terC RNA: a 57-nucleotide sequence from Aquimonas voraii. A search with the family's covariance model found it, with a score of 41 bits. The family's consensus secondary structure is taken from published work. It is annotated as a cis-regulatory element.

RNA sequence: GAGCGACUGCGGGCCCCUCUGGUCAUGUGCAAUGCAUGGCGAUGUCGGAGUCGUGAA
Numbered sequence: 001g002a003g004c005g006a007c008u009g010c011g012g013g014c015c016c017c018u019c020u021g022g023u024c025a026u027g028u029g030c031a032a033u034g035c036a037u038g039g040c041g042a043u044g045u046c047g048g049a050g051u052c053g054u055g056a057a
Stems, first nucleotide, its partner, number of pairs: 006051003010047003022040007